[Rfam]
RNA sequence: GCUGCGAAUGCAGGUGGAACUACAGCCUGUCACGCUCGUGGUCGCGGGUUCGAUUCCCGCCGGCGCCCUUCGGGUGCCGUAGCUCAGUGGAUAGAGCACGAUUGUUUCACCAUCCCUUGUCGCAGCGGG
Numbered sequence: 001g002c003u004g005c006g007a008a009u010g011c012a013g014g015u016g017g018a019a020c021u022a023c024a025g026c027c028u029g030u031c032a033c034g035c036u037c038g039u040g041g042u043c044g045c046g047g048g049u050u051c052g053a054u055u056c057c058c059g060c061c062g063g064c065g066c067c068c069u070u071c072g073g074g075u076g077c078c079g080u081a082g083c084u085c086a087g088u089g090g091a092u093a094g095a096g097c098a099c100g101a102u103u104g105u106u107u108c109a110c111c112a113u114c115c116c117u118u119g120u121c122g123c124a125g126c127g128g129g
Stems, first nucleotide, its partner, number of pairs: 002125006013111007023100001038099002044060005061079008082097004
This 129-nucleotide sequence belongs to the Rfam family "Y RNA-like". In Deinococcus radiodurans Rsr is tethered via Y RNA to the exoribonuclease PNPase and channels single-stranded RNA into the PNPase cavity. Rsr and Y RNA enhance degradation of structured RNAs by PNPase. This role could be conserved, as Rsr and ncRNAs called YrlA and YrlB (Y RNA like) also associate with PNPase in an evolutionary distant bacterium Salmonella Typhimurium. The literature on the family includes a 2014 paper in RNA by Chen et al., "Bacterial noncoding Y RNAs are widespread and mimic tRNAs".